[Rfam]
A member of the RNA family "DUF3800-XI RNA", 48 nucleotides long. About the family: Actinobacteria, Firmicutes, Proteobacteria, Spirochaetes (1 example). Pairs were carried over by alignment from the consensus structure, which is taken from published work.

RNA sequence: UGGGCCGGCCGAAAGACCCAGGUCCAUAUACUGGUGGGUAAGACACCC
Number, nucleotide and partner (000 for none) at each position: 001u026002g025003g024004g023005c022006c021007g018008g017009c000010c015011g000012a000013a000014a000015g010016a000017c008018c007019c000020a000021g006022g005023u004024c003025c002026a001027u000028a000029u000030a000031c000032u000033g000034g000035u000036g000037g000038g000039u000040a000041a000042g000043a000044c000045a000046c000047c000048c000